[Rfam]
RNA: Archaeal large subunit ribosomal RNA, nucleotides 1776 to 2148
RNA sequence: CGGGUAUACCGUAGGCGAGGGAACUCGACAAAUUAGUCCUGUACCUUCGGUAUAAGGGAUGCCUGCAAUCCUAAUGAGAAAUUGGGAUAGCAGGUUGCAAUGACAAGGGGGUUCCGACUGUUUAAUAAAAACACAGGUGACUGCUAGUCCGAAAGGAUGUGUAUAGUCACUGAAUCCUGGCCGGUGCUGGUACCUAAAACUUGGGUUCAACCGAGCUAAGGGCCAGUUAACGCCGGGAGUAACUCUGACUCUCUUAAGGUAGCCAAAUGCCUUGUCGGGUAAGUUCCGACGUGCAUGAAUGGAACAACGAGAGCCCCACUGUCCCCGCCUACAACCCGGUGAAGCUACAUAAGGUGGACGAACAGUCCAUCAU
Numbered sequence: 001c002g003g004g005u006a007u008a009c010c011g012u013a014g015g016c017g018a019g020g021g022a023a024c025u026c027g028a029c030a031a032a033u034u035a036g037u038c039c040u041g042u043a044c045c046u047u048c049g050g051u052a053u054a055a056g057g058g059a060u061g062c063c064u065g066c067a068a069u070c071c072u073a074a075u076g077a078g079a080a081a082u083u084g085g086g087a088u089a090g091c092a093g094g095u096u097g098c099a100a101u102g103a104c105a106a107g108g109g110g111g112u113u114c115c116g117a118c119u120g121u122u123u124a125a126u127a128a129a130a131a132c133a134c135a136g137g138u139g140a141c142u143g144c145u146a147g148u149c150c151g152a153a154a155g156g157a158u159g160u161g162u163a164u165a166g167u168c169a170c171u172g173a174a175u176c177c178u179g180g181c182c183g184g185u186g187c188u189g190g191u192a193c194c195u196a197a198a199a200c201u202u203g204g205g206u207u208c209a210a211c212c213g214a215g216c217u218a219a220g221g222g223c224c225a226g227u228u229a230a231c232g233c234c235g236g237g238a239g240u241a242a243c244u245c246u247g248a249c250u251c252u253c254u255u256a257a258g259g260u261a262g263c264c265a266a267a268u269g270c271c272u273u274g275u276c277g278g279g280u281a282a283g284u285u286c287c288g289a290c291g292u293g294c295a296u297g298a299a300u301g302g303a304a305c306a307a308c309g310a311g312a313g314c315c316c317c318a319c320u321g322u323c324c325c326c327g328c329c330u331a332c333a334a335c336c337c338g339g340u341g342a343a344g345c346u347a348c349a350u351a352a353g354g355u356g357g358a359c360g361a362a363c364a365g366u367c368c369a370u371c372a373u
Stems, first nucleotide, its partner, number of pairs: 001338004011332007019324003036060005045050001061095006068088008096100001108317007115309002119133003136171008144161001147158004175303003179234003184231002186227005193222003200215005235253006254258001274290006353371005